[Rfam]
RNA sequence: GGGCCGUUAGCUCAGUUGGUAGAGCAGCAGAUUCUUAAUCUGCGGGUCGUAGGUUCGAUCCCUACACGGCUCA
Numbered sequence: 001g002g003g004c005c006g007u008u009a010g011c012u013c014a015g016u017u018g019g020u021a022g023a024g025c026a027g028c029a030g031a032u033u034c035u036u037a038a039u040c041u042g043c044g045g046g047u048c049g050u051a052g053g054u055u056c057g058a059u060c061c062c063u064a065c066a067c068g069g070c071u072c073a
Stems, first nucleotide, its partner, number of pairs: 001072007010025004027043005049065005
Shown here is a 73-nucleotide RNA sequence from Bradymonas sediminis, a member of the family "tRNA". The family's RNA type in Rfam is transfer RNA. The source organism's lineage runs through Bacteria, delta/epsilon subdivisions, Deltaproteobacteria, Bradymonadales and Bradymonas. From the family's description: Transfer RNA (tRNA) molecules are approximately 80 nucleotides in length. Their secondary structure includes four short double-helical elements and three loops (D, anti-codon, and T loops).